The record is a 138-nucleotide sequence from Oncorhynchus mykiss, which matches "Small nucleolar RNA SNORA8" in Rfam. Lineage of the source: Eukaryota > Teleostomi > Neopterygii > Salmoniformes > Oncorhynchus. Rfam links the family to the GO terms nucleolus and RNA processing. The family is grouped with related families in Rfam's "SNORA8 clan". It is annotated as an H/ACA-box small nucleolar RNA. A search with the family's covariance model found it, with a score of 38 bits. The family's consensus secondary structure was predicted with RNAfold.

RNA sequence: AGGACUGCAUGGUAUCAGCAGCCAGCCACUACUCUGGUUCCACUGUUCAUUAGUCAGUGCAUGAGCAAUUCGACAUCUGGCAUUGUUGGUCUCCAUUCCUCUCUGUGCUGGGAAACCUGGUAUACAAUCGUUUCACUU
Dot-bracket structure: .(.((((......((.(((((..(((((......)))))...))))....).)))))).)....(..(((((......(((((.....................)))))........))).)).).............
Numbered sequence: 001a002g003g004a005c006u007g008c009a010u011g012g013u014a015u016c017a018g019c020a021g022c023c024a025g026c027c028a029c030u031a032c033u034c035u036g037g038u039u040c041c042a043c044u045g046u047u048c049a050u051u052a053g054u055c056a057g058u059g060c061a062u063g064a065g066c067a068a069u070u071c072g073a074c075a076u077c078u079g080g081c082a083u084u085g086u087u088g089g090u091c092u093c094c095a096u097u098c099c100u101c102u103c104u105g106u107g108c109u110g111g112g113a114a115a116c117c118u119g120g121u122a123u124a125c126a127a128u129c130g131u132u133u134c135a136c137u138u
Stems, first nucleotide, its partner, number of pairs: 002060001004058004014054002017051001018046004024039005065125001068123002070120003079109005